[Rfam]
RNA: U5 spliceosomal RNA
RNA sequence: GGCACAAGCCACUCUCUUCAUUCACACAUAAAUCUUUCACUUUUUACUAAAGAUUUCUGUGGAGAGGAACAUUGAUGAGUUCUACUUAUGUUUGUGGGCUUUGCUGUUGCAAAGCU
Numbered sequence: 001g002g003c004a005c006a007a008g009c010c011a012c013u014c015u016c017u018u019c020a021u022u023c024a025c026a027c028a029u030a031a032a033u034c035u036u037u038c039a040c041u042u043u044u045u046a047c048u049a050a051a052g053a054u055u056u057c058u059g060u061g062g063a064g065a066g067g068a069a070c071a072u073u074g075a076u077g078a079g080u081u082c083u084a085c086u087u088a089u090g091u092u093u094g095u096g097g098g099c100u101u102u103g104c105u106g107u108u109g110c111a112a113a114g115c116u
Stems, first nucleotide, its partner, number of pairs: 003079001005077002013067008030056008096116001098115006